[Rfam]
RNA sequence: GGUUGCAAGUUUUAGGCCAUAGCAGAAGCGCUCACAAUGUGACCUGUUAGAUUUCAACAAAUCUGUGAAUUUUGCU
Numbered sequence: 001g002g003u004u005g006c007a008a009g010u011u012u013u014a015g016g017c018c019a020u021a022g023c024a025g026a027a028g029c030g031c032u033c034a035c036a037a038u039g040u041g042a043c044c045u046g047u048u049a050g051a052u053u054u055c056a057a058c059a060a061a062u063c064u065g066u067g068a069a070u071u072u073u074g075c076u
Base pairs, nucleotide, nucleotide: 015044016043018041021076022075023074024073025072026071027070028040029039030038048065049064050063051062052061053060054059